[Rfam]
Rfam assigns this 72-nucleotide RNA from Sciurus carolinensis to the family "Small nucleolar RNA SNORD113/SNORD114 family". From the family's description: The imprinted human domain at 14q32 contains two clusters of tandemly repeated small nucleolar RNAs named 14q(I) and 14q(II) snoRNAs. These two clusters are named SNORD113 and SNORD114 respectively in the HGNC approved gene symbol nomenclature. The snoRNAs found in both clusters are clearly related and are represented here by a single family. These snoRNAs are intron encoded and are processed from the tissue-specific non-coding human MEG8 RNA, which lies downstream of the imprinted genes DLK1 and GTL2. snoRNAs 14q(I) and 14q(II) differ from previously identified C/D box snoRNAs in their expression profiles and lack of complementarity to rRNA and snRNA. Homologues of these snoRNAs are found in the imprinted non-coding mouse transcript Rian, and in the rat non-coding Bsr (brain-specific repetitive) RNA. The family's RNA type in Rfam is C/D-box small nucleolar RNA. NCBI's taxonomy places the organism under Eukaryota, Metazoa, Eumetazoa, Deuterostomia, Sciurus. Rfam links the family to the GO terms nucleolus and RNA processing. The family has 59 seed sequences and 5,721 matches in Rfam 15.1. The family is grouped with related families in Rfam's "SNORD74 clan". A reference for the family is Cavaille et al. (2002), "Identification of tandemly-repeated C/D snoRNA genes at the imprinted human 14q32 domain reminiscent of those at the Prader-Willi/Angelman syndrome region", Hum Mol Genet.
RNA sequence: UGCAUUCAUGGUGACCACUGGUGACAUGUGAAUCAUAAAUUAUAAAUACAUCUCCAGAACUCUGAAAUCUGU
Numbered sequence: 001u002g003c004a005u006u007c008a009u010g011g012u013g014a015c016c017a018c019u020g021g022u023g024a025c026a027u028g029u030g031a032a033u034c035a036u037a038a039a040u041u042a043u044a045a046a047u048a049c050a051u052c053u054c055c056a057g058a059a060c061u062c063u064g065a066a067a068u069c070u071g072u
Stems, first nucleotide, its partner, number of pairs: 002070001004068003